[Rfam]
RNA sequence: ACUCAACGCCAAUUUUUUAAAAAUGGGUGAAUCGUCGCUACUAUAGCAAGCUGCCCUGAGCAGAUCCUUGAACAGCGGGUUAGCCCAAAACUUGUUACACCGAGUUU
Number, nucleotide and partner (000 for none) at each position: 001a000002c000003u000004c000005a000006a000007c000008g000009c000010c000011a000012a000013u000014u000015u000016u000017u000018u000019a000020a000021a000022a000023a000024u087025g086026g085027g084028u083029g000030a000031a000032u000033c000034g000035u078036c077037g076038c075039u074040a000041c000042u000043a000044u000045a068046g067047c000048a000049a000050g000051c063052u062053g061054c060055c000056c000057u000058g000059a000060g054061c053062a052063g051064a000065u000066c000067c046068u045069u000070g000071a000072a000073c000074a039075g038076c037077g036078g035079g000080u000081u000082a000083g028084c027085c026086c025087a024088a000089a000090a000091c000092u000093u000094g000095u000096u000097a000098c000099a000100c000101c000102g000103a000104g000105u000106u000107u000
Source information:
The family of this 107-nucleotide RNA sequence from Flavobacterium subsaxonicum is "6S-Flavo RNA". A search with the family's covariance model found it, with a score of 96 bits. The base pairs follow the family's consensus structure, which is taken from published work.